Overview: A member of the RNA family "MIR7504 microRNA precursor family" from Gossypium australe, 123 nucleotides long. A search with the family's covariance model found it, with a score of 85 bits. Gene Ontology terms of the family: miRNA-mediated post-transcriptional gene silencing and RISC complex. Pairs were carried over by alignment from the consensus structure, which was predicted with RNAalifold.
RNA sequence: AAUAGGUUAAUGUCACAUCUGUAGUUUCAUCCUGAAUUUCAAGAUUUUCAUUUGGAUGUAAUUUUUUUCAAGAUAAAAAUACUGAAAUUCGGGAUGAAAAUGCUGAUGUGGCAUUAAAUUAUU
Numbered sequence: 001a002a003u004a005g006g007u008u009a010a011u012g013u014c015a016c017a018u019c020u021g022u023a024g025u026u027u028c029a030u031c032c033u034g035a036a037u038u039u040c041a042a043g044a045u046u047u048u049c050a051u052u053u054g055g056a057u058g059u060a061a062u063u064u065u066u067u068u069c070a071a072g073a074u075a076a077a078a079a080u081a082c083u084g085a086a087a088u089u090c091g092g093g094a095u096g097a098a099a100a101u102g103c104u105g106a107u108g109u110g111g112c113a114u115u116a117a118a119u120u121a122u123u
Base pairs, nucleotide, nucleotide: 001123002122003121004120005119007117008116009115010114011113012112013111014110015109016108017107018106019105021103022102023101025099026098027097029095030094031093032092033091034090035089036088037087038086039085041083045079046078047077048076